[Rfam]
RNA sequence: CCUGUGAGAACUCUGAGGAUAAGACCCUAUCAAUAUUGCCUCUGCUUCUGUGCUGGAUUCAAGUAGUGCAAUAUUGCUUAUAGGGUCUUUUCUUUGGGGAGGC
Numbered sequence: 001c002c003u004g005u006g007a008g009a010a011c012u013c014u015g016a017g018g019a020u021a022a023g024a025c026c027c028u029a030u031c032a033a034u035a036u037u038g039c040c041u042c043u044g045c046u047u048c049u050g051u052g053c054u055g056g057a058u059u060c061a062a063g064u065a066g067u068g069c070a071a072u073a074u075u076g077c078u079u080a081u082a083g084g085g086u087c088u089u090u091u092c093u094u095u096g097g098g099g100a101g102g103c
Stems, first nucleotide, its partner, number of pairs: 021089010031076009042066005